The record is a 577-nucleotide part of an RNA from Halomicrobium zhouii, which matches "Archaeal small subunit ribosomal RNA" in Rfam. A reference for the family is Yusupov et al. (2001), "Crystal structure of the ribosome at 5.5 A resolution", Science.
RNA sequence: UGGCGGGGGAGCACUACAACCGGAGGAGCCUGCGGUUUAAUUGGACUCAACGCCGGACAUCUCACCAGCACCGACAACAGUGAUGACGGUCAGCUUAACGAGCUUACCCGCGACGCUGUUGAGAGGAGGUGCAUGGCCGCCGUCAGCUCGUACCGUGAGGCAUCCUGUUAAGUCAGGCAACGAGCGAGACCCGUAUCCGUAAUUGCCAGCAAUACCCUUGUGGUAGUUGGGUACUUUACGGAGACUGCCACGGCUAACGUGGAGGAAGGAGCGGGCAACGGUAGGUCAGCAUGCCCCGAAUGUGCUGGGCAACACGCGGGCUACAAUGGCCGGGACAACGGGUCGCGACGCCGAGAGGCGGAGCUAAUCCCUUAAACCCGGUCGUAGUUCGGAUUGUGGGCUGAAACUCGCCCACAUGAAGCUGGGUUCGGUAGUAAUCGCGUGUCAGAAGCGCGCGGUGAAUCCGUCCCUGCCCCUUGCACACACCGCCCGUCAAAGCACCCGAGUGAGGUCCGGAUGAGGCCUGGAUUCCCAGGUCGAAUCUGGGCUUCGCAAGGGGGCUUAAGUCGUAACAAGG
Numbered sequence: 001u002g003g004c005g006g007g008g009g010a011g012c013a014c015u016a017c018a019a020c021c022g023g024a025g026g027a028g029c030c031u032g033c034g035g036u037u038u039a040a041u042u043g044g045a046c047u048c049a050a051c052g053c054c055g056g057a058c059a060u061c062u063c064a065c066c067a068g069c070a071c072c073g074a075c076a077a078c079a080g081u082g083a084u085g086a087c088g089g090u091c092a093g094c095u096u097a098a099c100g101a102g103c104u105u106a107c108c109c110g111c112g113a114c115g116c117u118g119u120u121g122a123g124a125g126g127a128g129g130u131g132c133a134u135g136g137c138c139g140c141c142g143u144c145a146g147c148u149c150g151u152a153c154c155g156u157g158a159g160g161c162a163u164c165c166u167g168u169u170a171a172g173u174c175a176g177g178c179a180a181c182g183a184g185c186g187a188g189a190c191c192c193g194u195a196u197c198c199g200u201a202a203u204u205g206c207c208a209g210c211a212a213u214a215c216c217c218u219u220g221u222g223g224u225a226g227u228u229g230g231g232u233a234c235u236u237u238a239c240g241g242a243g244a245c246u247g248c249c250a251c252g253g254c255u256a257a258c259g260u261g262g263a264g265g266a267a268g269g270a271g272c273g274g275g276c277a278a279c280g281g282u283a284g285g286u287c288a289g290c291a292u293g294c295c296c297c298g299a300a301u302g303u304g305c306u307g308g309g310c311a312a313c314a315c316g317c318g319g320g321c322u323a324c325a326a327u328g329g330c331c332g333g334g335a336c337a338a339c340g341g342g343u344c345g346c347g348a349c350g351c352c353g354a355g356a357g358g359c360g361g362a363g364c365u366a367a368u369c370c371c372u373u374a375a376a377c378c379c380g381g382u383c384g385u386a387g388u389u390c391g392g393a394u395u396g397u398g399g400g401c402u403g404a405a406a407c408u409c410g411c412c413c414a415c416a417u418g419a420a421g422c423u424g425g426g427u428u429c430g431g432u433a434g435u436a437a438u439c440g441c442g443u444g445u446c447a448g449a450a451g452c453g454c455g456c457g458g459u460g461a462a463u464c465c466g467u468c469c470c471u472g473c474c475c476c477u478u479g480c481a482c483a484c485a486c487c488g489c490c491c492g493u494c495a496a497a498g499c500a501c502c503c504g505a506g507u508g509a510g511g512u513c514c515g516g517a518u519g520a521g522g523c524c525u526g527g528a529u530u531c532c533c534a535g536g537u538c539g540a541a542u543c544u545g546g547g548c549u550u551c552g553c554a555a556g557g558g559g560g561c562u563u564a565a566g567u568c569g570u571a572a573c574a575a576g577g
Base pairs, nucleotide, nucleotide: 001483002482003480004479005478007477008476009475011473012472013471016467017466020431021430022429023428024427025324027322028321029320030319031318032317033316034315035313036312041056042055043054044053065308066307067306068305069304070303071302075121076120077119078118080116081115088108089107090106092104093103094102125297126296128295129294130293131292134291135290136286137285138284139282140281141280142279146185147184148183149182150181151180153160154159164177165176166175167174191274192273193272194271196242197241198240199239200238201237202236206231207230210229211228212227213225214224215223216222245265246264248262249261250260251259252258328383329382330381331380332379333378334377340371341370342369345364346363349360350359351358352357390421395416396415397414398413399412400411401410437459438458439457440456441455442454443453444452486576488573491569492568494566496563497562498561499560501558502557503556506553507552508551509550510549511548512547513546514545515544516543517542518541521538522537523536524535525534526533527532
Rfam 15.1 lists 709 matches to the family in 491 species.